The record is a 94-nucleotide RNA from Leucobacter insecticola, which matches "Glycine riboswitch aptamer" in Rfam. The base pairs follow the family's consensus structure. It scores 72 bits against the family's covariance model. The organism belongs to Leucobacter, within Bacteria.
RNA sequence: UGAGCCGUGGCGGGAGAGUCCGGGCCCAGAGCCCGGCGCCGAAGGAGCAAACCCUCCCCGGGAAUCUCUCAGGCACCCGUACCGCCACAGCUAG
Numbered sequence: 001u002g003a004g005c006c007g008u009g010g011c012g013g014g015a016g017a018g019u020c021c022g023g024g025c026c027c028a029g030a031g032c033c034c035g036g037c038g039c040c041g042a043a044g045g046a047g048c049a050a051a052c053c054c055u056c057c058c059c060g061g062g063a064a065u066c067u068c069u070c071a072g073g074c075a076c077c078c079g080u081a082c083c084g085c086c087a088c089a090g091c092u093a094g
Stems, first nucleotide, its partner, number of pairs: 007088007020036004038074003041070002045068003052060001